The record is a 76-nucleotide RNA sequence from Pseudorhodobacter sp. E13, which matches "Singlet oxygen resistance RNA X" in Rfam. Taxonomically the source falls in Pseudorhodobacter (Bacteria, Pseudomonadati, Alphaproteobacteria, Rhodobacterales). Rfam links the family to the GO term response to photooxidative stress. Pairs were carried over by alignment from the consensus structure. SorX (RSs2461)like SorY is a singlet oxygen induced sRNA that counteracts oxidative stress by targeting mRNA for a transporter in Rhodobacter. It also has an impact on resistance against organic hydroperoxides. It targets SD sequence of potA mRNA via an aSD sequence. The aSD sequence and some neighbouring nucleotides are identical to the one of SorY (targets takP mRNA).

[Rfam]
RNA sequence: CCCCUUGUCGCGUCGGGGUUAUGGCGCGGCAUCCUCCCUGUUGGACCUGGCCGGGCAUACGCGCCCGGCCUUUUUU
Numbered sequence: 001c002c003c004c005u006u007g008u009c010g011c012g013u014c015g016g017g018g019u020u021a022u023g024g025c026g027c028g029g030c031a032u033c034c035u036c037c038c039u040g041u042u043g044g045a046c047c048u049g050g051c052c053g054g055g056c057a058u059a060c061g062c063g064c065c066c067g068g069c070c071u072u073u074u075u076u
Base pairs, nucleotide, nucleotide: 008029009028010027011026012025013024014023049070050069051068052067053066054065055064056063